[Rfam]
RNA sequence: GGAACCCCCGCCCGGUAAGGCGUAGCCGCGCCACCGGUAGCCAGCUUUGGAGGUAUCGUAGAAAUAGGGUAACUUAAGCGUAAGCGGUUAGGUAGUAGGCCUGAAAGUGAUCGAGCCCCGAAAAUACCCAACGGUGCAGGACGAUGGUAUUGACGCCCCAGAAGUCAACACGCGUGAACGCGGAUGGCUAGUGUUCGCGUGCUGCCCCGGGGUCUAUGAGCC
Numbered sequence: 001g002g003a004a005c006c007c008c009c010g011c012c013c014g015g016u017a018a019g020g021c022g023u024a025g026c027c028g029c030g031c032c033a034c035c036g037g038u039a040g041c042c043a044g045c046u047u048u049g050g051a052g053g054u055a056u057c058g059u060a061g062a063a064a065u066a067g068g069g070u071a072a073c074u075u076a077a078g079c080g081u082a083a084g085c086g087g088u089u090a091g092g093u094a095g096u097a098g099g100c101c102u103g104a105a106a107g108u109g110a111u112c113g114a115g116c117c118c119c120g121a122a123a124a125u126a127c128c129c130a131a132c133g134g135u136g137c138a139g140g141a142c143g144a145u146g147g148u149a150u151u152g153a154c155g156c157c158c159c160a161g162a163a164g165u166c167a168a169c170a171c172g173c174g175u176g177a178a179c180g181c182g183g184a185u186g187g188c189u190a191g192u193g194u195u196c197g198c199g200u201g202c203u204g205c206c207c208c209g210g211g212g213u214c215u216a217u218g219a220g221c222c
Stems, first nucleotide, its partner, number of pairs: 012037004019032004023190003027187001039089003044085004048080002050075003054071004059066002113214001115213006134207001136205004140166003145160003171201011
The family of this 222-nucleotide RNA sequence from Acetonema longum is "Group II catalytic intron D1-D4-6". The match comes from Rfam's covariance-model search (126 bits). NCBI's taxonomy places the organism under Bacteria, Bacillati, Bacillota, Acetonema, Acetonema longum. Its family is annotated with Group II intron splicing in the Gene Ontology.